[Rfam]
RNA sequence: GCGUACCACUGUCUAUCGCACGGAUGUAACAUUAGCAAAGGCUGCGUGCCUUGCUUUCAUUCUUUCAAUAUUACUAAUAAUUUUGGUCGAGUACAUCCCGUUCUUGUAAAAAGAAGAAAGAUAGCGGCGGUAUGGUCUCUAUAUAGGGAGACGGGAG
Numbered sequence: 001g002c003g004u005a006c007c008a009c010u011g012u013c014u015a016u017c018g019c020a021c022g023g024a025u026g027u028a029a030c031a032u033u034a035g036c037a038a039a040g041g042c043u044g045c046g047u048g049c050c051u052u053g054c055u056u057u058c059a060u061u062c063u064u065u066c067a068a069u070a071u072u073a074c075u076a077a078u079a080a081u082u083u084u085g086g087u088c089g090a091g092u093a094c095a096u097c098c099c100g101u102u103c104u105u106g107u108a109a110a111a112a113g114a115a116g117a118a119a120g121a122u123a124g125c126g127g128c129g130g131u132a133u134g135g136u137c138u139c140u141a142u143a144u145a146g147g148g149a150g151a152c153g154g155g156a157g
Stems, first nucleotide, its partner, number of pairs: 003133005009127001014123004022098006101115004135152003139148002

This 157-nucleotide RNA belongs to the Rfam family "lysM-TM7 RNA". Rfam classes the family as a cis-regulatory element. The sequence is in the family's curated seed alignment.